[Rfam]
RNA sequence: GUACUCCCUCUGUCCCAUAAUAUAAGAACGUUUUUGAAGCUAAAACAGCUUGAAAACAUUCUUAUAUUAUGGGACGGAGGGAGUAG
Numbered sequence: 001g002u003a004c005u006c007c008c009u010c011u012g013u014c015c016c017a018u019a020a021u022a023u024a025a026g027a028a029c030g031u032u033u034u035u036g037a038a039g040c041u042a043a044a045a046c047a048g049c050u051u052g053a054a055a056a057c058a059u060u061c062u063u064a065u066a067u068u069a070u071g072g073g074a075c076g077g078a079g080g081g082a083g084u085a086g
Stems, first nucleotide, its partner, number of pairs: 003084003007080005013074005019068010030057006037051005
Background
A member of the RNA family "MIR1120/MIR1122 microRNA precursor family" from Triticum aestivum, 86 nucleotides long. Pairs were carried over by alignment from the consensus structure, which was predicted with RNAalifold. It scores 87 bits against the family's covariance model. The family has 6 seed sequences and 44,765 matches in Rfam 15.1.